[Rfam]
The family of this 309-nucleotide RNA sequence from Capitella teleta is "Nuclear RNase P". The family's RNA type in Rfam is ribozyme. A search with the family's covariance model found it, with a score of 169 bits.
RNA sequence: AUGGUGGUAAUGCUUGCUUUAGGGGUCACUCACAGGUGCCUGGUCACCUCGUUGCACCCUUGGGAAGGUCUGAGACAUUGGUCAAGCGUGGCUCUAGCAGGGCUCCACUGUAAUCGGUGGGUGGGACAACCAGAAAUAGUCCAGCCCCGUCGCGUUUCGGCAGAAGACGUCUUGGUGUGCGGUUGCUAUCCUCGGCUGAUGCUAUGCGGCGGUGGUUCGGUUGGAACGGACCCACGACCGGCGACUGCAGUCCAAUUCGCAGGGUGAUGCGGCGCCAUCAUAACUCAAUUCAGACUACUCUACCCCCAU
Numbered sequence: 001a002u003g004g005u006g007g008u009a010a011u012g013c014u015u016g017c018u019u020u021a022g023g024g025g026u027c028a029c030u031c032a033c034a035g036g037u038g039c040c041u042g043g044u045c046a047c048c049u050c051g052u053u054g055c056a057c058c059c060u061u062g063g064g065a066a067g068g069u070c071u072g073a074g075a076c077a078u079u080g081g082u083c084a085a086g087c088g089u090g091g092c093u094c095u096a097g098c099a100g101g102g103c104u105c106c107a108c109u110g111u112a113a114u115c116g117g118u119g120g121g122u123g124g125g126a127c128a129a130c131c132a133g134a135a136a137u138a139g140u141c142c143a144g145c146c147c148c149g150u151c152g153c154g155u156u157u158c159g160g161c162a163g164a165a166g167a168c169g170u171c172u173u174g175g176u177g178u179g180c181g182g183u184u185g186c187u188a189u190c191c192u193c194g195g196c197u198g199a200u201g202c203u204a205u206g207c208g209g210c211g212g213u214g215g216u217u218c219g220g221u222u223g224g225a226a227c228g229g230a231c232c233c234a235c236g237a238c239c240g241g242c243g244a245c246u247g248c249a250g251u252c253c254a255a256u257u258c259g260c261a262g263g264g265u266g267a268u269g270c271g272g273c274g275c276c277a278u279c280a281u282a283a284c285u286c287a288a289u290u291c292a293g294a295c296u297a298c299u300c301u302a303c304c305c306c307c308a309u
Base pairs, nucleotide, nucleotide: 001309002308003307004306007303008302009301013262014261021061022060023059024058025057034049035048036047037046038045039043070293071292072291073290074289080239081238082237083236090104091103092102093101094100105120106119107118108117109116110115121235122234123233124232125231127229141220142219264281265280266279267278268277269276